A member of the RNA family "Alphaproteobacteria transfer-messenger RNA" from Dankookia rubra, 323 nucleotides long. By type it is a non-coding RNA gene. About the family: Bacterial tmRNA, also known as 10Sa RNA or SsrA, is named for its dual tRNA and mRNA-like properties. Its role is to liberate the mRNA from a stalled ribosome. To accomplish this part of the tmRNA is used as a reading frame that ends in a translation stop signal.
Nucleotides: 323
Base pairs, nucleotide, nucleotide: 040065041064042063043062069200070199071198072197073196079193080192081191082190083189084188085187094178095177096176098175099174100173104120105119106118107117108116121160122159123158124157125156126155127154201216202215203214204213206227207226208225210224211223212222287303288302289301290300293320294319295318296317297316298315
Number, partner (000 for none) and nucleotide at each position: 001000c002000c003000c004000c005000u006000g007000g008000c009000a010000a011000c012000c013000g014000c015000g016000g017000c018000c019000g020000c021000g022000c023000u024000g025000u026000c027000c028000u029000a030000u031000a032000u033000c034000a035000a036000g037000c038000g039000c040065g041064u042063c043062g044000u045000c046000c047000g048000g049000g050000a051000g052000c053000g054000a055000u056000c057000c058000c059000g060000a061000c062043c063042g064041a065040c066000u067000a068000u069200g070199g071198u072197g073196a074000u075000a076000a077000a078000c079193a080192c081191g082190g083189c084188u085187c086000g087000g088000g089000a090000u091000a092000a093000g094178c095177g096176u097000u098175g099174c100173g101000g102000a103000c104120c105119c106118g107117g108116g109000g110000g111000c112000a113000g114000u115000g116108c117107c118106c119105g120104g121160c122159g123158c124157c125156u126155c127154c128000a129000c130000c131000a132000u133000u134000c135000c136000c137000c138000c139000a140000u141000a142000u143000g144000c145000g146000g147000g148000g149000g150000c151000u152000u153000c154127g155126g156125g157124g158123g159122c160121g161000a162000a163000a164000c165000a166000g167000g168000c169000u170000c171000g172000a173100c174099g175098c176096g177095c178094g179000u180000g181000g182000u183000a184000a185000u186000g187085g188084g189083g190082u191081c192080g193079u194000c195000u196073u197072u198071g199070c200069c201216c202215g203214g204213c205000a206227u207226g208225g209000u210224u211223c212222c213204g214203c215202c216201g217000u218000c219000a220000u221000c222212g223211g224210g225208c226207c227206a228000u229000u230000g231000a232000u233000a234000a235000g236000u237000g238000c239000g240000a241000a242000c243000g244000a245000u246000a247000a248000c249000g250000a251000c252000g253000c254000a255000c256000u257000c258000g259000c260000u261000g262000u263000u264000g265000c266000u267000g268000c269000g270000u271000a272000a273000g274000c275000a276000g277000u278000a279000a280000a281000c282000a283000a284000g285000c286000g287303c288302g289301g290300u291000u292000c293320g294319g295318g296317g297316g298315g299000c300290a301289c302288c303287g304000g305000g306000c307000a308000a309000c310000a311000g312000a313000a314000g315298c316297c317296c318295c319294c320293c321000a322000c323000u